[Rfam]
RNA sequence: CUCUUAUCCAGAGUGGUGGAGGGACUAGGCCCUAUGAUACCCGGCAACCCGCUUAUAUAUAAGCAACGGUGCCAAUUCCUGCGAUACUUUUGUAUCGACAGAUGAGAG
Numbered sequence: 001c002u003c004u005u006a007u008c009c010a011g012a013g014u015g016g017u018g019g020a021g022g023g024a025c026u027a028g029g030c031c032c033u034a035u036g037a038u039a040c041c042c043g044g045c046a047a048c049c050c051g052c053u054u055a056u057a058u059a060u061a062a063g064c065a066a067c068g069g070u071g072c073c074a075a076u077u078c079c080u081g082c083g084a085u086a087c088u089u090u091u092g093u094a095u096c097g098a099c100a101g102a103u104g105a106g107a108g
Base pairs, nucleotide, nucleotide: 001108002107003106004105005104006103007102008101013042015041016040017039021032022031023030026081027080028079029078043073044072045071046070048069049068051064052063053062077100082097083096084095085094086093087092

Rfam assigns this 108-nucleotide sequence from Marinisporobacter balticus to the family "SAM riboswitch aptamer (S box leader)". The match comes from Rfam's covariance-model search (94 bits).